Purine riboswitch aptamer: a 105-nucleotide RNA from Psychrobacillus psychrotolerans.
The match comes from Rfam's covariance-model search (59 bits).
RNA sequence: UAAUCUAUAAAUUUUUACCCUUGUAUAAUAUCAGUUAAAUUGGCCUGAUAGUCUCUACCUGGCAGCCACAAUAAAUGCCGGACUACAAGGAAGCAUGAAAAAGAG
Numbered sequence: 001u002a003a004u005c006u007a008u009a010a011a012u013u014u015u016u017a018c019c020c021u022u023g024u025a026u027a028a029u030a031u032c033a034g035u036u037a038a039a040u041u042g043g044c045c046u047g048a049u050a051g052u053c054u055c056u057a058c059c060u061g062g063c064a065g066c067c068a069c070a071a072u073a074a075a076u077g078c079c080g081g082a083c084u085a086c087a088a089g090g091a092a093g094c095a096u097g098a099a100a101a102a103g104a105g
Base pairs, nucleotide, nucleotide: 019090020089021088022087023086024085025084029050030049031048032047033046034045059081060080061079062078063077064076